[Rfam]
RNA sequence: UGUAAAAAAUUGCUCCGAGCCAUUCGACCUAAGGAUUUACGUCUAGGGUCCUUGGCCAAUGGGUUUCGCUGGAAACGGCGGAGCCUCCCUUUCGGAAAGGAGACAAAGCGAUCUGUCAC
Numbered sequence: 001u002g003u004a005a006a007a008a009a010u011u012g013c014u015c016c017g018a019g020c021c022a023u024u025c026g027a028c029c030u031a032a033g034g035a036u037u038u039a040c041g042u043c044u045a046g047g048g049u050c051c052u053u054g055g056c057c058a059a060u061g062g063g064u065u066u067c068g069c070u071g072g073a074a075a076c077g078g079c080g081g082a083g084c085c086u087c088c089c090u091u092u093c094g095g096a097a098a099g100g101a102g103a104c105a106a107a108g109c110g111a112u113c114u115g116u117c118a119c
Base pairs, nucleotide, nucleotide: 004112011105012104013102014101015100016099019056020055021054022053026050027049028048029047033044034043035042036041061086062085063084064083065082066081067080068079069078070077071076087095088094